The family of this 89-nucleotide RNA from Planosporangium mesophilum is "ZMP/ZTP riboswitch aptamer (pfl RNA motif)". Its family is annotated with one-carbon metabolic process and regulation of purine nucleotide biosynthetic process in the Gene Ontology.

[Rfam]
RNA sequence: ACGGGUACUCGUGACUGGCGCAUGACAGAGGUGGAAACAACCACCGGGGAGCGACCAUGAUCGCGGCACCGCGCGCCUGGGUGUCCGGU
Numbered sequence: 001a002c003g004g005g006u007a008c009u010c011g012u013g014a015c016u017g018g019c020g021c022a023u024g025a026c027a028g029a030g031g032u033g034g035a036a037a038c039a040a041c042c043a044c045c046g047g048g049g050a051g052c053g054a055c056c057a058u059g060a061u062c063g064c065g066g067c068a069c070c071g072c073g074c075g076c077c078u079g080g081g082u083g084u085c086c087g088g089u
Stems, first nucleotide, its partner, number of pairs: 005058002009054004015048002017077005031044004066084005
About this RNA
It scores 50 bits against the family's covariance model.